Rfam assigns this 54-nucleotide RNA from Synaphobranchus kaupii to the family "UnaL2 LINE 3' element". A reference for the family is Baba et al. (2004), "Solution structure of an RNA stem-loop derived from the 3' conserved region of eel LINE UnaL2", RNA. It scores 60 bits against the family's covariance model. NCBI's taxonomy places the organism under Eukaryota, Bilateria, Neopterygii, Elopocephala, Synaphobranchus. From the family's description: The eel long interspersed element (LINE) UnaL2 and its partner short interspersed element (SINE) share a conserved 3' tail containing a stem-loop that is critical for their retrotransposition. Presumably, the first step of retrotransposition is the recognition of their 3' tails by UnaL2-encoded reverse transcriptase. The solution structure of a 17-nucleotide RNA derived from the 3' tail of UnaL2 was determined by NMR.

[Rfam]
RNA sequence: UUACUUACUUACUGUACGUCGCUUUGGAUAAAAGCGUCUGCUAAAUGAAUGUAA
Numbered sequence: 001u002u003a004c005u006u007a008c009u010u011a012c013u014g015u016a017c018g019u020c021g022c023u024u025u026g027g028a029u030a031a032a033a034g035c036g037u038c039u040g041c042u043a044a045a046u047g048a049a050u051g052u053a054a
Stems, first nucleotide, its partner, number of pairs: 013043001014041003020036006
Dot-bracket structure: ............((((...((((((.....))))))..))).)...........